[Rfam]
RNA sequence: CCCUUGGAGUAUCACACCAACUCAAGUACUUUGUAAAAAGGAAAGAGGAUACGUUGAAUGGGGAA
Number, nucleotide and partner (000 for none) at each position: 001c063002c062003c061004u060005u000006g000007g000008a000009g052010u051011a050012u049013c048014a000015c000016a000017c000018c000019a000020a000021c047022u046023c045024a000025a000026g000027u000028a000029c040030u039031u038032u000033g000034u000035a000036a000037a000038a031039a030040g029041g000042a000043a000044a000045g023046a022047g021048g013049a012050u011051a010052c009053g000054u000055u000056g000057a000058a000059u000060g004061g003062g002063g001064a000065a000
RNA: RAGATH-18 RNA